Shown here is a 100-nucleotide sequence from Aquabacter spiritensis, a member of the family "TPP riboswitch aptamer (THI element)".
RNA sequence: AACACCGGCCUGGGGUGCCGCACAUCAUGUGCGGCUGAGAUCAUACCCAUCGAACCUGUCUGGAUCAUGCCAGCGUAGGGAGGAGCCGAUGAGCGAGAGC
Numbered sequence: 001a002a003c004a005c006c007g008g009c010c011u012g013g014g015g016u017g018c019c020g021c022a023c024a025u026c027a028u029g030u031g032c033g034g035c036u037g038a039g040a041u042c043a044u045a046c047c048c049a050u051c052g053a054a055c056c057u058g059u060c061u062g063g064a065u066c067a068u069g070c071c072a073g074c075g076u077a078g079g080g081a082g083g084a085g086c087c088g089a090u091g092a093g094c095g096a097g098a099g100c
Base pairs, nucleotide, nucleotide: 006088007087008086009085011049012048013047014046016043017035018034019033020032021031022030023029055079056078057077058076060073061072062071063070

Lineage of the source: Bacteria > Pseudomonadati > Alphaproteobacteria > Hyphomicrobiales > Aquabacter. Gene Ontology term of the family: thiamine pyrophosphate binding.